[Rfam]
RNA sequence: AGGACGGGCCUUUCAGGCAUCCUCUCCUAUAAACUUUCAUGGGCCGGUCCUCGCGAUCGGCCCUUUUUUUAUGCCUGC
Numbered sequence: 001a002g003g004a005c006g007g008g009c010c011u012u013u014c015a016g017g018c019a020u021c022c023u024c025u026c027c028u029a030u031a032a033a034c035u036u037u038c039a040u041g042g043g044c045c046g047g048u049c050c051u052c053g054c055g056a057u058c059g060g061c062c063c064u065u066u067u068u069u070u071a072u073g074c075c076u077g078c
Stems, first nucleotide, its partner, number of pairs: 008018004041063009

Makes More Granules Regulator RNA (mmgR): a 78-nucleotide RNA from Sphingomonas sp. CL5.1. Its Rfam clan is "suhB sRNA clan". Taxonomically the source falls in Sphingomonas (Bacteria, Alphaproteobacteria, Sphingomonadales, Sphingomonadaceae). It is annotated as a small RNA. Rfam describes the family as follows. SuhB later renamed mmgR (makes more granules regulator) was a putative non-coding RNA found multiple times in the Agrobacterium tumefaciens genome and related alpha-proteobacteria. Other non-coding RNAs uncovered in the same analysis include: speF, ybhL, metA, and serC.Several studies inSinorhizobium meliloti showed that suhB element is indeed a non-coding RNA:firstly it was detected on Northern blot and called Sm8RNA, secondly in an RNAseq study referred to as SmelC689.The mutant phenotype's (strain lacking the small RNA) cytoplasm contains higher content of polyhydroxybutyrate (PBH)storage granules than wild type strain. The sRNA is required to limit the PBH intracellular accumulation when the nitrogen-fixing Sinorhizobium meliloti is under condition of surplus carbon in relation to nitrogen. It has been renamed to mmgR. Further study confirmed that mmgR fine-tunes the regulation of PBH storage.Northern blot confirmed the expression of the sRNA in other rhizobia species. It scores 52 bits against the family's covariance model.